[Rfam]
RNA sequence: UGGUAGAUGCACCCUGGUUAAUGCCCUGGCUAUCGAGUCUAGGGCUUUUUCUA
Numbered sequence: 001u002g003g004u005a006g007a008u009g010c011a012c013c014c015u016g017g018u019u020a021a022u023g024c025c026c027u028g029g030c031u032a033u034c035g036a037g038u039c040u041a042g043g044g045c046u047u048u049u050u051c052u053a
Stems, first nucleotide, its partner, number of pairs: 002013003023045007031037001

Shown here is a 53-nucleotide sequence from Planktothrix tepida, a member of the family "Nitrogen stress-induced RNA 1". Rfam classes the family as a small RNA. NCBI's taxonomy places the organism under Bacteria, Bacillati, Cyanophyceae, Planktothrix, Planktothrix tepida.